Rfam assigns this 85-nucleotide sequence from Geotrypetes seraphini to the family "mir-301 microRNA precursor family". Lineage of the source: Eukaryota > Opisthokonta > Craniata > Sarcopterygii > Geotrypetes. Gene Ontology terms of the family: miRNA-mediated post-transcriptional gene silencing and RISC complex. The family has 17 seed sequences and 1,415 matches in Rfam 15.1. The base pairs follow the family's consensus structure, which was predicted with WAR. On this family, see Houbaviy et al., Dev Cell 2003: "Embryonic stem cell-specific MicroRNAs". A search with the family's covariance model found it, with a score of 80 bits.
[Rfam]
RNA sequence: UGGUGUCAGCUGCUCUGACAGUGUUGCACUACUGUUUGCACUAAUGAAGCAGUGCAAUAAUAUUGUCAAAGCAUUUGGUUCCAGU
Numbered sequence: 001u002g003g004u005g006u007c008a009g010c011u012g013c014u015c016u017g018a019c020a021g022u023g024u025u026g027c028a029c030u031a032c033u034g035u036u037u038g039c040a041c042u043a044a045u046g047a048a049g050c051a052g053u054g055c056a057a058u059a060a061u062a063u064u065g066u067c068a069a070a071g072c073a074u075u076u077g078g079u080u081c082c083a084g085u
Stems, first nucleotide, its partner, number of pairs: 002082002007077003011073004016068004023058008034042001